[Rfam]
RNA sequence: UAUUUAGGGUAAUCGCUAUAGCAAUAUAGAGGAAAGUCCAUGCUCACACAGUCUGAGACGACUGUAGUGUUCGUGCUUGAUGAAAUCAUAAGUCAAGGCAAAUAAUUGACGGCAAUGAAAUAAUCUAAGUCGAGAGAUAAGAUUAGAAUAGUUUGAAAGUGCCACAGUGACGUAGCUUUUGUGGAAACACAAAAGGUGGAACGCGGUAAACCCCUCGAGUGAGCAAUCCAAAUUUGGUAGGAGCACUUGUUAAGCGGAAUUCAACGUAUUAACGAGGAGAUGAGUCAUGUGCUCAUCUCAGACAGAUGAUUACCACCGGAGUACAAGUGUAACUAGUGCACGUAGCAGUACGAUGGUACAGAACAUGGCUUAUAUAA
Numbered sequence: 001u002a003u004u005u006a007g008g009g010u011a012a013u014c015g016c017u018a019u020a021g022c023a024a025u026a027u028a029g030a031g032g033a034a035a036g037u038c039c040a041u042g043c044u045c046a047c048a049c050a051g052u053c054u055g056a057g058a059c060g061a062c063u064g065u066a067g068u069g070u071u072c073g074u075g076c077u078u079g080a081u082g083a084a085a086u087c088a089u090a091a092g093u094c095a096a097g098g099c100a101a102a103u104a105a106u107u108g109a110c111g112g113c114a115a116u117g118a119a120a121u122a123a124u125c126u127a128a129g130u131c132g133a134g135a136g137a138u139a140a141g142a143u144u145a146g147a148a149u150a151g152u153u154u155g156a157a158a159g160u161g162c163c164a165c166a167g168u169g170a171c172g173u174a175g176c177u178u179u180u181g182u183g184g185a186a187a188c189a190c191a192a193a194a195g196g197u198g199g200a201a202c203g204c205g206g207u208a209a210a211c212c213c214c215u216c217g218a219g220u221g222a223g224c225a226a227u228c229c230a231a232a233u234u235u236g237g238u239a240g241g242a243g244c245a246c247u248u249g250u251u252a253a254g255c256g257g258a259a260u261u262c263a264a265c266g267u268a269u270u271a272a273c274g275a276g277g278a279g280a281u282g283a284g285u286c287a288u289g290u291g292c293u294c295a296u297c298u299c300a301g302a303c304a305g306a307u308g309a310u311u312a313c314c315a316c317c318g319g320a321g322u323a324c325a326a327g328u329g330u331a332a333c334u335a336g337u338g339c340a341c342g343u344a345g346c347a348g349u350a351c352g353a354u355g356g357u358a359c360a361g362a363a364c365a366u367g368g369c370u371u372a373u374a375u376a377a
Stems, first nucleotide, its partner, number of pairs: 004377003007373001008314007016029005034371003038368005043223005048065006071218003075214001076097006098110001099108003111213002114153003122144004129138003159211002161207003176195008227242003246276007277299009316356003321351004
Dot-bracket structure: ...(((((((((((.(((((....)))))....[[[.[[[[[(((((((((((......)))))).....(((.(((((((..........))))))((((....))).)((.(((.....((((...(((....)))..))))......))).....(((((............((((((((....)))))))).........)))..))))).))))))))...(((..........)))...(((((((.................)))))))(((((((((.....)))))))))........))))))).(((..((((.......................))))..))).......]]]]]]]].).)))
RNA: Bacterial RNase P class B